[Rfam]
RNA sequence: GCAGCCGGACGGUCUGUCGCUGGUAUCUUUGAUACAAGAGGAAAGUCCGGGCAACACAGAGCAUCCUACUUCCUAACAGAAAGCUAUCCGCAAGGGUAGAGUAAUGCAGAAGAAAACAACCGCCUUUCCUACCCGGAGAGGUAAGGGUGAGAAGGCAGGGUAAGAGCCUACCAGCCGUAUGGCGACAUACGGGCUGUGCAUCUUAGGAGUUGUAAGGUCAUGUAAACCGGCAUCAUGAGGGUUGCUCGCCCAACGUCGGAGGGUAGACCGCUAGAGCUUUUUGGUGACAAAAGGCGUAGAUAAAUGACAGACACCUUUAUCUAAUAAAGGCACAGAACCCGGCUUAUAGACCGGCUGCUUUU
Numbered sequence: 001g002c003a004g005c006c007g008g009a010c011g012g013u014c015u016g017u018c019g020c021u022g023g024u025a026u027c028u029u030u031g032a033u034a035c036a037a038g039a040g041g042a043a044a045g046u047c048c049g050g051g052c053a054a055c056a057c058a059g060a061g062c063a064u065c066c067u068a069c070u071u072c073c074u075a076a077c078a079g080a081a082a083g084c085u086a087u088c089c090g091c092a093a094g095g096g097u098a099g100a101g102u103a104a105u106g107c108a109g110a111a112g113a114a115a116a117c118a119a120c121c122g123c124c125u126u127u128c129c130u131a132c133c134c135g136g137a138g139a140g141g142u143a144a145g146g147g148u149g150a151g152a153a154g155g156c157a158g159g160g161u162a163a164g165a166g167c168c169u170a171c172c173a174g175c176c177g178u179a180u181g182g183c184g185a186c187a188u189a190c191g192g193g194c195u196g197u198g199c200a201u202c203u204u205a206g207g208a209g210u211u212g213u214a215a216g217g218u219c220a221u222g223u224a225a226a227c228c229g230g231c232a233u234c235a236u237g238a239g240g241g242u243u244g245c246u247c248g249c250c251c252a253a254c255g256u257c258g259g260a261g262g263g264u265a266g267a268c269c270g271c272u273a274g275a276g277c278u279u280u281u282u283g284g285u286g287a288c289a290a291a292a293g294g295c296g297u298a299g300a301u302a303a304a305u306g307a308c309a310g311a312c313a314c315c316u317u318u319a320u321c322u323a324a325u326a327a328a329g330g331c332a333c334a335g336a337a338c339c340c341g342g343c344u345u346a347u348a349g350a351c352c353g354g355c356u357g358c359u360u361u362u
Stems, first nucleotide, its partner, number of pairs: 001358008010349001011347001012312007020038002023035005043345003047342005052212004059247004064208005069083003073079001084099001086097004100203002104201005120146002122142008154172002157169003174194001175192007216269004227259005239251004276295008
Rfam assigns this 362-nucleotide sequence from Bacteroides sp. An322 to the family "Bacterial RNase P class A". NCBI's taxonomy places the organism under Bacteria, Bacteroidota, Bacteroidales, Bacteroidaceae, Bacteroides. Pairs were carried over by alignment from the consensus structure, which is taken from published work. Rfam's curators write: Ribonuclease P (RNase P) is a ubiquitous endoribonuclease, found in archaea, bacteria and eukarya as well as chloroplasts and mitochondria.